The record is an 87-nucleotide sequence from Parambassis ranga, which matches "mir-145 microRNA precursor family" in Rfam.

[Rfam]
RNA sequence: UCCUCUCUCCUGGGGUCCAGUUUUCCCAGGAAUCCCUUCAUCUUUUAGAAGGGGGAUUCCUGGAAAUACUGUUCUUGGGGGUGGGGC
Numbered sequence: 001u002c003c004u005c006u007c008u009c010c011u012g013g014g015g016u017c018c019a020g021u022u023u024u025c026c027c028a029g030g031a032a033u034c035c036c037u038u039c040a041u042c043u044u045u046u047a048g049a050a051g052g053g054g055g056a057u058u059c060c061u062g063g064a065a066a067u068a069c070u071g072u073u074c075u076u077g078g079g080g081g082u083g084g085g086g087c
Base pairs, nucleotide, nucleotide: 018071019070020069021068023066024065026063027062028061029060030059031058032057033056034055035054036053037052
It scores 78 bits against the family's covariance model. The literature on the family includes a 2005 paper in Genes Dev by Chen et al., "The developmental miRNA profiles of zebrafish as determined by small RNA cloning". The base pairs follow the family's consensus structure, which was predicted with RNAalifold. The source organism's lineage runs through Eukaryota, Metazoa, Euteleosteomorpha, Euacanthomorphacea and Parambassis. Rfam links the family to the GO terms RISC complex and miRNA-mediated post-transcriptional gene silencing.